[Rfam]
A member of the RNA family "TPP riboswitch aptamer (THI element)" from Tetzosporium hominis, 102 nucleotides long. Pairs were carried over by alignment from the consensus structure, which is taken from published work. Rfam's curators write: Vitamin B(1) in its active form thiamin pyrophosphate (TPP) is an essential coenzyme that is synthesised by coupling of pyrimidine and thiazole moieties in bacteria. The organism belongs to Tetzosporium, within Bacteria. A search with the family's covariance model found it, with a score of 85 bits.

RNA sequence: UAAAUACACUAGGGGAGCCGAAUUGGCUGAGACGGACAAUAGUCCGGACCCUUUGAACCUGAUCUGGGUCAUACCAGCGGAGGGAAGUGUGCGAACCCUUUA
Numbered sequence: 001u002a003a004a005u006a007c008a009c010u011a012g013g014g015g016a017g018c019c020g021a022a023u024u025g026g027c028u029g030a031g032a033c034g035g036a037c038a039a040u041a042g043u044c045c046g047g048a049c050c051c052u053u054u055g056a057a058c059c060u061g062a063u064c065u066g067g068g069u070c071a072u073a074c075c076a077g078c079g080g081a082g083g084g085a086a087g088u089g090u091g092c093g094a095a096c097c098c099u100u101u102a
Stems, first nucleotide, its partner, number of pairs: 006090005011052004017027004034045004058083003064077004